[Rfam]
RNA sequence: UUGCGUUAGGGAUUGCAGUGAAAAUCCUUUUAUUUUUUUCUUUAAAAAAUAAAAGAUUGUAACGGAAAGCCCGACCUCGU
Numbered sequence: 001u002u003g004c005g006u007u008a009g010g011g012a013u014u015g016c017a018g019u020g021a022a023a024a025u026c027c028u029u030u031u032a033u034u035u036u037u038u039u040c041u042u043u044a045a046a047a048a049a050u051a052a053a054a055g056a057u058u059g060u061a062a063c064g065g066a067a068a069g070c071c072c073g074a075c076c077u078c079g080u
Stems, first nucleotide, its partner, number of pairs: 009072003013068002018063002023058004029053010
A member of the RNA family "Flavo-1 RNA", 80 nucleotides long.